[Rfam]
RNA sequence: AAAAAGGGCUUCUGCUGUGAUUAGCACAUGGAGUGGGGUGGCUGCGGCUUGCUCUUUUCCGUGCGGAAUCGCUAUCAAGAGAUUUCGGAAGCAUAAUUUUUGCUACUGGGGGUAGCUGGUAAUCGCUUGUUCUGGCUCCCCG
Numbered sequence: 001a002a003a004a005a006g007g008g009c010u011u012c013u014g015c016u017g018u019g020a021u022u023a024g025c026a027c028a029u030g031g032a033g034u035g036g037g038g039u040g041g042c043u044g045c046g047g048c049u050u051g052c053u054c055u056u057u058u059c060c061g062u063g064c065g066g067a068a069u070c071g072c073u074a075u076c077a078a079g080a081g082a083u084u085u086c087g088g089a090a091g092c093a094u095a096a097u098u099u100u101u102g103c104u105a106c107u108g109g110g111g112g113u114a115g116c117u118g119g120u121a122a123u124c125g126c127u128u129g130u131u132c133u134g135g136c137u138c139c140c141c142g
Stems, first nucleotide, its partner, number of pairs: 008092005013026005027063007035055007064087007110140003115136005121131003